About this RNA: The family of this 145-nucleotide RNA from Callithrix jacchus is "Small nucleolar RNA SNORA26". The family has 76 seed sequences and 1,943 matches in Rfam 15.1. The snoRNA HBI-6 belong to the H/ACA family of snoRNAs, guiding the pseudouridylation of position U4522 if the 28S rRNA. HBI-6 is the human orthologue of mouse MBI-6 snoRNA. The literature on the family includes a 2001 paper in EMBO J by Huttenhofer et al., "RNomics: an experimental approach that identifies 201 candidates for novel, small, non-messenger RNAs in mouse". The base pairs follow the family's consensus structure, which was predicted with RNAalifold. Rfam links the family to the GO terms nucleolus and RNA processing. It is annotated as an H/ACA-box small nucleolar RNA.
RNA sequence: GUUCCUUUCACAGUUGCUAUCUCUACAACUCAACAGCAAAAAGACAACCAAAUUAAAAAAAACACAGAGGGGUAAAGUUAGUCUCCAUUAAACUCAGGGAGGAGACUGGAAAACUCCUCUUUGGAUCCUGUCUAUAGUCACAGGU
Numbered sequence: 001g002u003u004c005c006u007u008u009c010a011c012a013g014u015u016g017c018u019a020u021c022u023c024u025a026c027a028a029c030u031c032a033a034c035a036g037c038a039a040a041a042a043g044a045c046a047a048c049c050a051a052a053u054u055a056a057a058a059a060a061a062a063c064a065c066a067g068a069g070g071g072g073u074a075a076a077g078u079u080a081g082u083c084u085c086c087a088u089u090a091a092a093c094u095c096a097g098g099g100a101g102g103a104g105a106c107u108g109g110a111a112a113a114c115u116c117c118u119c120u121u122u123g124g125a126u127c128c129u130g131u132c133u134a135u136a137g138u139c140a141c142a143g144g145u
Base pairs, nucleotide, nucleotide: 001073002072003071004070005069006068007067008066013063014062015061081139083137084136087133094124095123096122097121098120099119100118102116103115104114107112